[Rfam]
RNA sequence: UUAAUGUUUCUUGCUCAAAUGAGUAUUCCAACUGCAAGAUAUAUAUGUAGUACUUGGUGCUGUUGAGAUGCUCAUUUGAGUAAGUAAUGUUAA
Numbered sequence: 001u002u003a004a005u006g007u008u009u010c011u012u013g014c015u016c017a018a019a020u021g022a023g024u025a026u027u028c029c030a031a032c033u034g035c036a037a038g039a040u041a042u043a044u045a046u047g048u049a050g051u052a053c054u055u056g057g058u059g060c061u062g063u064u065g066a067g068a069u070g071c072u073c074a075u076u077u078g079a080g081u082a083a084g085u086a087a088u089g090u091u092a093a
Stems, first nucleotide, its partner, number of pairs: 004090005010084018029065004

A member of the RNA family "MIR828 microRNA precursor family" from Papaver somniferum, 93 nucleotides long. On this family, see Ma et al., Plant Cell 2010: "Arabidopsis lyrata small RNAs: transient MIRNA and small interfering RNA loci within the Arabidopsis genus". Its family is annotated with RISC complex and miRNA-mediated post-transcriptional gene silencing in the Gene Ontology.